The record is an 89-nucleotide RNA sequence from Nannospalax galili, which matches "mir-3473 microRNA precursor family" in Rfam. The match comes from Rfam's covariance-model search (73 bits). Rfam 15.1 lists 1,094 matches to the family in 20 species.

[Rfam]
RNA sequence: ACUGCUGAGCCAUCUCUCCAGCCCCCAAUACAUAUAAUUUAAAUUUUAGAAAAAAAAUUAUGUGGGGACUGGAGAGAUGGCUCAGCAGU
Numbered sequence: 001a002c003u004g005c006u007g008a009g010c011c012a013u014c015u016c017u018c019c020a021g022c023c024c025c026c027a028a029u030a031c032a033u034a035u036a037a038u039u040u041a042a043a044u045u046u047u048a049g050a051a052a053a054a055a056a057a058u059u060a061u062g063u064g065g066g067g068a069c070u071g072g073a074g075a076g077a078u079g080g081c082u083c084a085g086c087a088g089u
Stems, first nucleotide, its partner, number of pairs: 002088020023067005